[Rfam]
RNA sequence: ACAGUCCGAAAGCUGCGAUGCUCUCCCCGUACAGGUGACACCCCGGUGACAUCUCCCUCGUGAGCGGGCUAAGGUCUGAGUGUUCGUCCUCUUCGAUUGGCUCUAGCAGAGCCCUGUGUUCAUCGCACACAGCAGUGUACCAGCAACAUGCCUGUGCGCACCGUUGUCCCGACGAUUGCCCCGCCUGUUGGGAGGGGGCCUGAGGGCUGGUGAGCGCGGGUUUGGGAACGCUGCGAGGACCGGGCAUUUCCAUGUUUUACUGGCCUGUCUGUUCUAUCGCGUCUCAUGUGCCUCUUGUGGGCAGCGUGAAGCCCGGCUGCGGAGAGAUCAAUUGGAUGACAAUUGUUACCUCGUUAACGUUGUGAUCAUUGAUCGAGCCGCGGAACUCACGGCUUCAUGUGUACCCUUGCACUACCUUUGCGUGUGUGAGGGGCCCCUGGCUCAAACUGCUGCAAUUAGCAAUCGCCCGGAAUAAUACCGUGGUUGAUCCCUGUUGCGCGGGGCUCGGGAGUGUACACCCAGCCGAGCCAGAUGAUGACGUAUGAGGAACGUAGCUGGUUGCAGCGCUGAUGGCCUGUACGUGGAUGGUGUCCUUGAGUGCACUUUGCGGCGCGCGUCAUCCGCGUAACUCGAUUCAGACUACUCUUUGAUUGU
Numbered sequence: 001a002c003a004g005u006c007c008g009a010a011a012g013c014u015g016c017g018a019u020g021c022u023c024u025c026c027c028c029g030u031a032c033a034g035g036u037g038a039c040a041c042c043c044c045g046g047u048g049a050c051a052u053c054u055c056c057c058u059c060g061u062g063a064g065c066g067g068g069c070u071a072a073g074g075u076c077u078g079a080g081u082g083u084u085c086g087u088c089c090u091c092u093u094c095g096a097u098u099g100g101c102u103c104u105a106g107c108a109g110a111g112c113c114c115u116g117u118g119u120u121c122a123u124c125g126c127a128c129a130c131a132g133c134a135g136u137g138u139a140c141c142a143g144c145a146a147c148a149u150g151c152c153u154g155u156g157c158g159c160a161c162c163g164u165u166g167u168c169c170c171g172a173c174g175a176u177u178g179c180c181c182c183g184c185c186u187g188u189u190g191g192g193a194g195g196g197g198g199c200c201u202g203a204g205g206g207c208u209g210g211u212g213a214g215c216g217c218g219g220g221u222u223u224g225g226g227a228a229c230g231c232u233g234c235g236a237g238g239a240c241c242g243g244g245c246a247u248u249u250c251c252a253u254g255u256u257u258u259a260c261u262g263g264c265c266u267g268u269c270u271g272u273u274c275u276a277u278c279g280c281g282u283c284u285c286a287u288g289u290g291c292c293u294c295u296u297g298u299g300g301g302c303a304g305c306g307u308g309a310a311g312c313c314c315g316g317c318u319g320c321g322g323a324g325a326g327a328u329c330a331a332u333u334g335g336a337u338g339a340c341a342a343u344u345g346u347u348a349c350c351u352c353g354u355u356a357a358c359g360u361u362g363u364g365a366u367c368a369u370u371g372a373u374c375g376a377g378c379c380g381c382g383g384a385a386c387u388c389a390c391g392g393c394u395u396c397a398u399g400u401g402u403a404c405c406c407u408u409g410c411a412c413u414a415c416c417u418u419u420g421c422g423u424g425u426g427u428g429a430g431g432g433g434c435c436c437c438u439g440g441c442u443c444a445a446a447c448u449g450c451u452g453c454a455a456u457u458a459g460c461a462a463u464c465g466c467c468c469g470g471a472a473u474a475a476u477a478c479c480g481u482g483g484u485u486g487a488u489c490c491c492u493g494u495u496g497c498g499c500g501g502g503g504c505u506c507g508g509g510a511g512u513g514u515a516c517a518c519c520c521a522g523c524c525g526a527g528c529c530a531g532a533u534g535a536u537g538a539c540g541u542a543u544g545a546g547g548a549a550c551g552u553a554g555c556u557g558g559u560u561g562c563a564g565c566g567c568u569g570a571u572g573g574c575c576u577g578u579a580c581g582u583g584g585a586u587g588g589u590g591u592c593c594u595u596g597a598g599u600g601c602a603c604u605u606u607g608c609g610g611c612g613c614g615c616g617u618c619a620u621c622c623g624c625g626u627a628a629c630u631c632g633a634u635u636c637a638g639a640c641u642a643c644u645c646u647u648u649g650a651u652u653g654u
Stems, first nucleotide, its partner, number of pairs: 001654004008648003014610001017605001019066005034054002039048003076638005086240004099113005115129005132234006150221008612626005
RNA: Nuclear RNase P
Organism: Russula ochroleuca